Rfam assigns this 75-nucleotide RNA sequence from Bicyclus anynana to the family "mir-970 microRNA precursor family". The base pairs follow the family's consensus structure, which was predicted with RNAalifold.

RNA sequence: CAGGGGGAGCCUUGCGUGUGAUCUUAUAGGUAGUGUAGUAGUCAAUCUAUCAUAAGACACACGCGGCUCUUCCUG
Numbered sequence: 001c002a003g004g005g006g007g008a009g010c011c012u013u014g015c016g017u018g019u020g021a022u023c024u025u026a027u028a029g030g031u032a033g034u035g036u037a038g039u040a041g042u043c044a045a046u047c048u049a050u051c052a053u054a055a056g057a058c059a060c061a062c063g064c065g066g067c068u069c070u071u072c073c074u075g
Base pairs, nucleotide, nucleotide: 001075002074003073004072005071006070008068009067010066011065014064015063016062019059020058022057023056024055029051030050031049032048